[Rfam]
Rfam assigns this 65-nucleotide RNA from Eumeta japonica to the family "mir-2 microRNA precursor family". For this family Rfam cites "An extensive class of small RNAs in Caenorhabditis elegans" (Lee and Ambros, Science, 2001). The source organism's lineage runs through Eukaryota, Mandibulata, Hexapoda, Insecta and Eumeta. The base pairs follow the family's consensus structure, which was predicted with PFOLD. Rfam 15.1 lists 918 matches to the family in 280 species.
Nucleotides: 065
Stems, first nucleotide, its partner, number of pairs: 005059009015049001017047006025041003
Number, partner (000 for none) and nucleotide at each position: 001000g002000c003000u004000c005059u006058c007057g008056u009055c010054a011053a012052a013051a014000c015049g016000a017047c018046u019045g020044u021043g022042g023000a024000a025041u026040g027039u028000c029000a030000c031000c032000g033000g034000c035000c036000a037000c038000c039027a040026u041025a042022u043021c044020a045019c046018a047017g048000c049015c050000a051013u052012u053011u054010u055009g056008a057007c058006g059005a060000g061000u062000u063000g064000c065000g